[Rfam]
RNA: Small nucleolar RNA SNORD115
RNA sequence: GGGCUGAUGAUGAGAACUCAUAUGGUCCUGAAGAGAGAUGGUGAUCUAAAGUCAUGCUCAAUAGGACUAUGGUGAGGCUC
Numbered sequence: 001g002g003g004c005u006g007a008u009g010a011u012g013a014g015a016a017c018u019c020a021u022a023u024g025g026u027c028c029u030g031a032a033g034a035g036a037g038a039u040g041g042u043g044a045u046c047u048a049a050a051g052u053c054a055u056g057c058u059c060a061a062u063a064g065g066a067c068u069a070u071g072g073u074g075a076g077g078c079u080c
Base pairs, nucleotide, nucleotide: 001080002079003078004077005074006073008071009070